The record is a 146-nucleotide RNA from Psychromicrobium silvestre, which matches "c-di-AMP riboswitch aptamer (ydaO/yuaA leader)" in Rfam. The match comes from Rfam's covariance-model search (61 bits). The organism belongs to Psychromicrobium, within Bacteria.
RNA sequence: GGGUGCAUACAGCAAUUCCGGCAGAGACGGGGGAACCACUUUCGGCCACGCAGUACUGGUGGCCUUGGGGUGAAGCCCUGCAGCACAGGGCCGGCUUUCUCAGCCGAAUCCGACAGCUCACCUCGCAGGCAAAAGAGAGGCAUUAU
Numbered sequence: 001g002g003g004u005g006c007a008u009a010c011a012g013c014a015a016u017u018c019c020g021g022c023a024g025a026g027a028c029g030g031g032g033g034a035a036c037c038a039c040u041u042u043c044g045g046c047c048a049c050g051c052a053g054u055a056c057u058g059g060u061g062g063c064c065u066u067g068g069g070g071u072g073a074a075g076c077c078c079u080g081c082a083g084c085a086c087a088g089g090g091c092c093g094g095c096u097u098u099c100u101c102a103g104c105c106g107a108a109u110c111c112g113a114c115a116g117c118u119c120a121c122c123u124c125g126c127a128g129g130c131a132a133a134a135g136a137g138a139g140g141c142a143u144u145a146u
Base pairs, nucleotide, nucleotide: 004131005130006129016026017025018024028125029124030123031122032121037067038066068111069110070109076090077089078088079087093105094104095103096102